[Rfam]
The record is a 63-nucleotide sequence from Sciurus carolinensis, which matches "Small nucleolar RNA Z39" in Rfam.
It scores 65 bits against the family's covariance model.
Rfam 15.1 lists 935 matches to the family in 520 species.
Rfam links the family to the GO terms RNA processing and nucleolus.
A reference for the family is Chen et al. (2003), "The high diversity of snoRNAs in plants: identification and comparative study of 120 snoRNA genes from Oryza sativa", Nucleic Acids Res.

RNA sequence: UUGCAUAUGAUGAAGCAAAACAGUAUGAAAAAAGUCAUGAUAUUGUAAAAACUCUCUGAUGUA
Numbered sequence: 001u002u003g004c005a006u007a008u009g010a011u012g013a014a015g016c017a018a019a020a021c022a023g024u025a026u027g028a029a030a031a032a033a034g035u036c037a038u039g040a041u042a043u044u045g046u047a048a049a050a051a052c053u054c055u056c057u058g059a060u061g062u063a
Stems, first nucleotide, its partner, number of pairs: 002063004012055001014053002021045006